This 137-nucleotide RNA from Dicentrarchus labrax belongs to the Rfam family "Small nucleolar RNA SNORA22". It scores 88 bits against the family's covariance model. The organism belongs to Dicentrarchus, within Eukaryota. The family's consensus secondary structure was predicted with RNAfold. Rfam describes the family as follows. ACA22 is a member of the H/ACA class of snoRNA that guide the sites of modification of uridines to pseudouridines.
RNA sequence: UUGCACAGUGAACACCCAAGGAUGCUAACGUAGCUCCCCCUGGUCUCUUGUGUCUGUGCUACAGUAAACCUGAUCUGUACCUCUGCAUUAGGAGAGUCCGCUCCUCACUUACAUGUAUUCAACAGAUCAGAAUAAAC
Numbered sequence: 001u002u003g004c005a006c007a008g009u010g011a012a013c014a015c016c017c018a019a020g021g022a023u024g025c026u027a028a029c030g031u032a033g034c035u036c037c038c039c040c041u042g043g044u045c046u047c048u049u050g051u052g053u054c055u056g057u058g059c060u061a062c063a064g065u066a067a068a069c070c071u072g073a074u075c076u077g078u079a080c081c082u083c084u085g086c087a088u089u090a091g092g093a094g095a096g097u098c099c100g101c102u103c104c105u106c107a108c109u110u111a112c113a114u115g116u117a118u119u120c121a122a123c124a125g126a127u128c129a130g131a132a133u134a135a136a137c
Base pairs, nucleotide, nucleotide: 003059004058005057006056007055008054010053013050014049016043017042018041020039024034025033026032061076063074065072066071084121085120086115087114088113090110091109092108094106095105096104